[Rfam]
RNA sequence: UGGUAGAUGCACCCUGAUUGAAUCCCUGGCGUUACGCUGGGGAUUUUCUCU
Numbered sequence: 001u002g003g004u005a006g007a008u009g010c011a012c013c014c015u016g017a018u019u020g021a022a023u024c025c026c027u028g029g030c031g032u033u034a035c036g037c038u039g040g041g042g043a044u045u046u047u048c049u050c051u
Stems, first nucleotide, its partner, number of pairs: 002013003023043009
Nitrogen stress-induced RNA 1: a 51-nucleotide RNA sequence from Coleofasciculus sp. LEGE 07092. The organism belongs to Coleofasciculus, within Bacteria. By type it is a small RNA. The match comes from Rfam's covariance-model search (54 bits).